[Rfam]
mir-27 microRNA precursor family: a 78-nucleotide RNA from Labeo rohita. Pairs were carried over by alignment from the consensus structure, which was predicted with RNAalifold. A search with the family's covariance model found it, with a score of 65 bits. A reference for the family is Chen et al. (2005), "The developmental miRNA profiles of zebrafish as determined by small RNA cloning", Genes Dev. The source organism's lineage runs through Eukaryota, Actinopteri, Osteoglossocephalai, Ostariophysi and Labeo.
RNA sequence: UGUGGUGUCAGGACUUAACCCACUUGUGAACACUGCAGUAAACUUCUUUGUUCACAGUGGUUAAGUUCUGCCAUCCUG
Numbered sequence: 001u002g003u004g005g006u007g008u009c010a011g012g013a014c015u016u017a018a019c020c021c022a023c024u025u026g027u028g029a030a031c032a033c034u035g036c037a038g039u040a041a042a043c044u045u046c047u048u049u050g051u052u053c054a055c056a057g058u059g060g061u062u063a064a065g066u067u068c069u070g071c072c073a074u075c076c077u078g
Stems, first nucleotide, its partner, number of pairs: 011068010026055007